SAM-I/IV (S-adenosyl methionine) riboswitch aptamer: a 93-nucleotide sequence. The family is grouped with related families in Rfam's "SAM clan". The literature on the family includes a 2008 paper in RNA by Weinberg et al., "The aptamer core of SAM-IV riboswitches mimics the ligand-binding site of SAM-I riboswitches". The sequence is in the family's curated seed alignment. The base pairs follow the family's consensus structure, which is taken from published work.
RNA sequence: UUGAAACAUAUAGAGAAGGUUAAGACCUCGGCAACCUGGAUGACUAUCCAAGGUGCUCGUAAAUGUGGCAGAAAUGCAACUAAUUAGUCAAAA
Numbered sequence: 001u002u003g004a005a006a007c008a009u010a011u012a013g014a015g016a017a018g019g020u021u022a023a024g025a026c027c028u029c030g031g032c033a034a035c036c037u038g039g040a041u042g043a044c045u046a047u048c049c050a051a052g053g054u055g056c057u058c059g060u061a062a063a064u065g066u067g068g069c070a071g072a073a074a075u076g077c078a079a080c081u082a083a084u085u086a087g088u089c090a091a092a093a
Stems, first nucleotide, its partner, number of pairs: 006066004015029001017028004030057003035053003038049003042088001046084001068077003